[Rfam]
RNA: c-di-AMP riboswitch aptamer (ydaO/yuaA leader)
Nucleotides: 152
Base pairs, nucleotide, nucleotide: 003022004021024133025132026131027130028129029128034070071118072117073116079096080095081094099112100111101110102109
Number, partner (000 for none) and nucleotide at each position: 001000c002000c003022u004021c005000c006000a007000a008000g009000a010000c011000a012000g013000c014000u015000u016000g017000g018000g019000c020000a021004g022003a023000a024133g025132c026131g027130g028129g029128g030000g031000a032000a033000c034070c035000a036000g037000g038000u039000u040000c041000c042000u043000c044000c045000g046000g047000g048000c049000g050000g051000c052000c053000c054000c055000g056000u057000c058000a059000c060000g061000g062000c063000c064000g065000c066000c067000c068000u069000c070034g071118g072117g073116g074000u075000u076000a077000a078000g079096u080095c081094g082000c083000c084000u085000c086000c087000a088000c089000g090000g091000a092000g093000a094081c095080g096079a097000c098000c099112g100111g101110g102109c103000u104000u105000c106000c107000c108000g109102g110101c111100c112099c113000g114000a115000a116073c117072c118071c119000g120000a121000c122000a123000g124000c125000u126000a127000a128029c129028c130027u131026c132025g133024c134000a135000g136000g137000c138000g139000u140000a141000c142000g143000g144000g145000a146000a147000g148000g149000a150000u151000u152000c